[Rfam]
Mammalian CPEB3 ribozyme: a 75-nucleotide sequence from Alligator mississippiensis.
RNA sequence: UUUGCAAGUUUGAGGCUAAAGCAGAAGCGCUCACAGCAGGGCCUGUCAGAUUUUAAUGAAUCUGCAAAUUAUGCU
Number, nucleotide and partner (000 for none) at each position: 001u000002u000003u000004g000005c000006a000007a000008g000009u000010u000011u000012g000013a000014g043015g042016c041017u040018a000019a000020a075021g074022c073023a072024g000025a070026a069027g000028c000029g037030c000031u000032c000033a000034c000035a000036g000037c029038a000039g000040g017041g016042c015043c014044u000045g000046u000047c064048a063049g062050a061051u060052u059053u058054u000055a000056a000057u000058g053059a052060a051061u050062c049063u048064g047065c000066a000067a000068a000069u026070u025071a000072u023073g022074c021075u020